[Rfam]
RNA sequence: GUCUACCUUCGGGGCGGGGUGCAAUUCCCCACCGGCGGUGUUCGGCGGAUCCGUCCGCCGUCAGUCCGUGACCCGUUCUUGCAGCUUCCGGUCAACCGGAGCCCGCGAGGCGGCUGACCCGGUGAGAGUCCGGGACCGACAGUUACAGUCUGGAUGGGAGAAGGAGCGC
Numbered sequence: 001g002u003c004u005a006c007c008u009u010c011g012g013g014g015c016g017g018g019g020u021g022c023a024a025u026u027c028c029c030c031a032c033c034g035g036c037g038g039u040g041u042u043c044g045g046c047g048g049a050u051c052c053g054u055c056c057g058c059c060g061u062c063a064g065u066c067c068g069u070g071a072c073c074c075g076u077u078c079u080u081g082c083a084g085c086u087u088c089c090g091g092u093c094a095a096c097c098g099g100a101g102c103c104c105g106c107g108a109g110g111c112g113g114c115u116g117a118c119c120c121g122g123u124g125a126g127a128g129u130c131c132g133g134g135a136c137c138g139a140c141a142g143u144u145a146c147a148g149u150c151u152g153g154a155u156g157g158g159a160g161a162a163g164g165a166g167c168g169c
Base pairs, nucleotide, nucleotide: 004166006164007163008162009161010160017029018028019027031149032148033138034137035069036068037067038066064136065135073113074112075111076110077109118134119133120132121131122130140152141151142150